A member of the RNA family "Y RNA" from Cavia porcellus, 99 nucleotides long. The family has 104 seed sequences and 26,986 matches in Rfam 15.1. NCBI's taxonomy places the organism under Eukaryota, Metazoa, Euteleostomi, Hystricomorpha, Cavia. It scores 71 bits against the family's covariance model.
[Rfam]
RNA sequence: GGCUGGUCCGAUGGCAGUGGGUUAUCACAACUUAUUACCAUUAGUGUCUCUAAAGUUGGUACACCACCCCCCCCCACUGCUAAAUUUGACUGGCUUUAA
Numbered sequence: 001g002g003c004u005g006g007u008c009c010g011a012u013g014g015c016a017g018u019g020g021g022u023u024a025u026c027a028c029a030a031c032u033u034a035u036u037a038c039c040a041u042u043a044g045u046g047u048c049u050c051u052a053a054a055g056u057u058g059g060u061a062c063a064c065c066a067c068c069c070c071c072c073c074c075c076a077c078u079g080c081u082a083a084a085u086u087u088g089a090c091u092g093g094c095u096u097u098a099a
Stems, first nucleotide, its partner, number of pairs: 001095008010087002016078006027060002030057001
By type it is a non-coding RNA gene. About the family: Y RNAs are components of the Ro ribonucleoprotein particle (Ro RNP), in association with Ro60 and La proteins. The Y RNAs and Ro60 and La proteins are well conserved, but the function of the Ro RNP is not known.